[Rfam]
RNA: small nucleolar RNA snoR135
Organism: Brachypodium distachyon
RNA sequence: UCUGCAGGAUUGUGUGUAUCGGCUUUACGCUAAUGCGGUGCGUCUUGCCGAAAGUAUUUCCUGCUAUAUUAAUACGAGGAAAGUGGGCAGUUAGGUUAACAUCGAUAAUUUGUUUUCAGUAACAAUCAUUUUCCCCUCAUGC
Numbered sequence: 001u002c003u004g005c006a007g008g009a010u011u012g013u014g015u016g017u018a019u020c021g022g023c024u025u026u027a028c029g030c031u032a033a034u035g036c037g038g039u040g041c042g043u044c045u046u047g048c049c050g051a052a053a054g055u056a057u058u059u060c061c062u063g064c065u066a067u068a069u070u071a072a073u074a075c076g077a078g079g080a081a082a083g084u085g086g087g088c089a090g091u092u093a094g095g096u097u098a099a100c101a102u103c104g105a106u107a108a109u110u111u112g113u114u115u116u117c118a119g120u121a122a123c124a125a126u127c128a129u130u131u132u133c134c135c136c137u138c139a140u141g142c
Base pairs, nucleotide, nucleotide: 004064005063006062007061008060009058014043015042016041017040018039019038076136078134079133080132081131082130083129084128085127086126090123091122092121093120